The family of this 135-nucleotide RNA sequence from Phoenicibacter congonensis is "FMN riboswitch aptamer (RFN element)". Taxonomically the source falls in Phoenicibacter (Bacteria, Actinomycetota, Eggerthellales, Eggerthellaceae).
RNA sequence: GGGACGUUUUAGGGCGGGGUGAAAUUCCCCACUGGCGGUGACAAGCUGCGAGCUUGAAGUCCGCGAACUCCGAGAGGAGCCGAGCCAGCGAAAUUCUGGCACCAACGGUUAAAGUCCGGAUGGGAAAAGCGAAAG
Numbered sequence: 001g002g003g004a005c006g007u008u009u010u011a012g013g014g015c016g017g018g019g020u021g022a023a024a025u026u027c028c029c030c031a032c033u034g035g036c037g038g039u040g041a042c043a044a045g046c047u048g049c050g051a052g053c054u055u056g057a058a059g060u061c062c063g064c065g066a067a068c069u070c071c072g073a074g075a076g077g078a079g080c081c082g083a084g085c086c087a088g089c090g091a092a093a094u095u096c097u098g099g100c101a102c103c104a105a106c107g108g109u110u111a112a113a114g115u116c117c118g119g120a121u122g123g124g125a126a127a128a129g130c131g132a133a134a135g
Stems, first nucleotide, its partner, number of pairs: 005131006017029003031115002033104002035064004059102002068079002084100005106118003